[Rfam]
RtT RNA: a 145-nucleotide RNA sequence from Salmonella enterica. The source organism's lineage runs through Bacteria, Pseudomonadota, Gammaproteobacteria, Enterobacteriaceae and Salmonella enterica subsp. enterica. For this family Rfam cites "A novel RNA product of the tyrT operon of Escherichia coli" (Bosl and Kersten, Nucleic Acids Res, 1991). This family represents a bacterial cis-regulatory element known as RtT RNA. The exact function of RtT is unknown although it is thought that it may be involved in changing the cellular response in relation to amino acid starvation.

Nucleotides: 145
Stems, first nucleotide, its partner, number of pairs: 016135006022128001043107002046105002054102004061072002079095006
Number, partner (000 for none) and nucleotide at each position: 001000c002000c003000c004000g005000a006000g007000c008000g009000a010000u011000c012000a013000u014000a015000a016135g017134g018133g019132a020131g021130c022128u023000g024000a025000c026000u027000g028000c029000a030000a031000a032000u033000c034000u035000g036000c037000c038000g039000u040000c041000a042000u043107c044106g045000a046105c047104u048000u049000c050000a051000a052000g053000g054102u055101u056100c057099g058000a059000c060000u061072c062071g063000a064000g065000c066000a067000a068000u069000a070000g071062u072061g073000a074000g075000a076000g077000a078000a079095c080094g081093u082092u083091g084090c085000c086000g087000c088000a089000g090084g091083c092082a093081a094080c095079g096000g097000c098000c099057c100056g101055a102054a103000g104047g105046g106044u107043g108000a109000g110000g111000a112000g113000a114000u115000u116000u117000a118000g119000a120000u121000c122000c123000g124000u125000a126000u127000a128022a129000u130021g131020c132019u133018u134017c135016c136000c137000g138000c139000u140000a141000u142000a143000g144000a145000u